[Rfam]
RNA sequence: AUAUUGAUUAGGCCAAAACCUGCCUUGAAGCAGGUGCGGGGGACGAUUUGCCGAACUGCUGAUUUAUGCAAGGUUUAACAUAAACAGCUUUCUUGGGGUGAAGCGUAAGAGACGACGCAGGGAACCAAUCCUUUUUCCCGAACCCGACAACUAACUCCGCAGGCGAAAGUAAAGGGAGGA
Numbered sequence: 001a002u003a004u005u006g007a008u009u010a011g012g013c014c015a016a017a018a019c020c021u022g023c024c025u026u027g028a029a030g031c032a033g034g035u036g037c038g039g040g041g042g043a044c045g046a047u048u049u050g051c052c053g054a055a056c057u058g059c060u061g062a063u064u065u066a067u068g069c070a071a072g073g074u075u076u077a078a079c080a081u082a083a084a085c086a087g088c089u090u091u092c093u094u095g096g097g098g099u100g101a102a103g104c105g106u107a108a109g110a111g112a113c114g115a116c117g118c119a120g121g122g123a124a125c126c127a128a129u130c131c132u133u134u135u136u137c138c139c140g141a142a143c144c145c146g147a148c149a150a151c152u153a154a155c156u157c158c159g160c161a162g163g164c165g166a167a168a169g170u171a172a173a174g175g176g177a178g179g180a
Stems, first nucleotide, its partner, number of pairs: 012164003018035006036160006044095002096145003104117003120139004